[Rfam]
RNA sequence: ACACCCUACGGUUUUCAGGUCCGCCGCAACUCCUGUUCCGUAGGGCGGCUGGCCCGGUUCGGACAAGAGUGGCCUCUUCGACAAACCGGCCCGGGUCAGCCACUUU
Numbered sequence: 001a002c003a004c005c006c007u008a009c010g011g012u013u014u015u016c017a018g019g020u021c022c023g024c025c026g027c028a029a030c031u032c033c034u035g036u037u038c039c040g041u042a043g044g045g046c047g048g049c050u051g052g053c054c055c056g057g058u059u060c061g062g063a064c065a066a067g068a069g070u071g072g073c074c075u076c077u078u079c080g081a082c083a084a085a086c087c088g089g090c091c092c093g094g095g096u097c098a099g100c101c102a103c104u105u106u
Base pairs, nucleotide, nucleotide: 004045005044006043007042008041009040010039016035017034018033019032047101048100049099050098051097052096053095054094055093056092057091
RNA: EcpR1
Organism: Pelagibacterium luteolum